[Rfam]
ZMP/ZTP riboswitch aptamer (pfl RNA motif): an 83-nucleotide sequence from Microbacterium pygmaeum. The family's consensus secondary structure is taken from published work.

RNA sequence: CAGGACGUCGCGACUGGCGUUGAGGUGGUUCACCACCGGGGAGCGAACGACACGGCAUUCGACCGCUCGCCUGGGCCGAUGCG
Numbered sequence: 001c002a003g004g005a006c007g008u009c010g011c012g013a014c015u016g017g018c019g020u021u022g023a024g025g026u027g028g029u030u031c032a033c034c035a036c037c038g039g040g041g042a043g044c045g046a047a048c049g050a051c052a053c054g055g056c057a058u059u060c061g062a063c064c065g066c067u068c069g070c071c072u073g074g075g076c077c078g079a080u081g082c083g
Base pairs, nucleotide, nucleotide: 004051006049007048008046009045010044011043014040015039016071017070018069019068025036026035027034028033060078061077063075064074